[Rfam]
Rfam assigns this 91-nucleotide sequence from Acidovorax sp. CF316 to the family "Glycine riboswitch aptamer".
Its family is annotated with glycine biosynthetic process in the Gene Ontology.
It scores 59 bits against the family's covariance model.
From the family's description: This family represents the bacterial glycine riboswitch.
RNA sequence: UUGCGCCCGUCAGGAGAGAGUCCCCUUCGCGGGGGCCGCCGAAGGCGCAGGGACACCCCGAACGCUCAGGCAAAAGGACUGGCAAGCGCCU
Dot-bracket structure: .....(..(((((......((((.........)))).(((((..(((...((.....))...))))).))).......)))))..).....